The record is a 74-nucleotide RNA from Lates calcarifer, which matches "mir-205 microRNA precursor family" in Rfam. Lineage of the source: Eukaryota > Chordata > Ctenosquamata > Centropomidae > Lates. For this family Rfam cites "Vertebrate microRNA genes" (Lim et al., Science, 2003). Pairs were carried over by alignment from the consensus structure, which was predicted with RNAalifold. Rfam 15.1 lists 1,154 matches to the family in 646 species. Gene Ontology terms of the family: miRNA-mediated post-transcriptional gene silencing and RISC complex. It scores 56 bits against the family's covariance model.
[Rfam]
RNA sequence: UCUCCCUGUCCUUCAUUCCACCGGAUUCUGUUAUUCAUGCAGUAGAUUCCCAGUGGGAUGAAGCGCAGAGGGGC
Numbered sequence: 001u002c003u004c005c006c007u008g009u010c011c012u013u014c015a016u017u018c019c020a021c022c023g024g025a026u027u028c029u030g031u032u033a034u035u036c037a038u039g040c041a042g043u044a045g046a047u048u049c050c051c052a053g054u055g056g057g058a059u060g061a062a063g064c065g066c067a068g069a070g071g072g073g074c
Stems, first nucleotide, its partner, number of pairs: 011063006019055003023050003028045003